[Rfam]
RNA sequence: CGGUGGUGAUGUCUGAACUCACGAUGGUCUUCAGAGCCCCCCGUGUGAGGGGCUGCUGACAACGCCUCUGGCACCUGCUGAACCGGGGGC
Number, nucleotide and partner (000 for none) at each position: 001c085002g084003g083004u082005g000006g000007u000008g000009a000010u000011g000012u000013c000014u000015g000016a000017a000018c000019u000020c000021a000022c000023g000024a000025u000026g000027g000028u000029c000030u000031u000032c000033a000034g000035a000036g000037c000038c000039c000040c000041c000042c000043g000044u000045g000046u000047g000048a000049g000050g000051g000052g000053c000054u000055g000056c000057u000058g000059a000060c000061a000062a000063c000064g000065c000066c000067u000068c000069u000070g000071g000072c000073a000074c000075c000076u000077g000078c000079u000080g000081a000082a004083c003084c002085g001086g000087g000088g000089g000090c000